[Rfam]
RNA: Ribosomal protein L13 leader
Organism: Lactobacillus rodentium
RNA sequence: UGUAUGUUUGUCCACGAUAGGCCCCGGAAACUUAUUGUAUGUCAAACACAAG
Number, nucleotide and partner (000 for none) at each position: 001u000002g000003u000004a000005u048006g047007u046008u045009u044010g043011u000012c000013c000014a038015c037016g036017a035018u034019a033020g032021g031022c000023c000024c000025c000026g000027g000028a000029a000030a000031c021032u020033u019034a018035u017036u016037g015038u014039a000040u000041g000042u000043c010044a009045a008046a007047c006048a005049c000050a000051a000052g000